[Rfam]
Description:
This 78-nucleotide RNA from Acanthaster planci belongs to the Rfam family "mir-252 microRNA precursor family". Rfam 15.1 lists 422 matches to the family in 306 species. A search with the family's covariance model found it, with a score of 70 bits. Its Rfam clan is "mir-252 microRNA precursor family". Gene Ontology terms of the family: RISC complex and miRNA-mediated post-transcriptional gene silencing.
RNA sequence: GCUCUGUUCUAAGUACUAGUGCCGCAGUUGUUAUUUUUUUACAAUCAUCAACUGCUACGCUGGUGCUUAACACGGGGU
Numbered sequence: 001g002c003u004c005u006g007u008u009c010u011a012a013g014u015a016c017u018a019g020u021g022c023c024g025c026a027g028u029u030g031u032u033a034u035u036u037u038u039u040u041a042c043a044a045u046c047a048u049c050a051a052c053u054g055c056u057a058c059g060c061u062g063g064u065g066c067u068u069a070a071c072a073c074g075g076g077g078u
Base pairs, nucleotide, nucleotide: 001078002077003076004075005074006073007072010069011068012067013066014065015064016063017062018061019060024055025054026053027052028051029050030049
Taxonomically the source falls in Acanthaster (Eukaryota, Bilateria, Asterozoa, Asteroidea).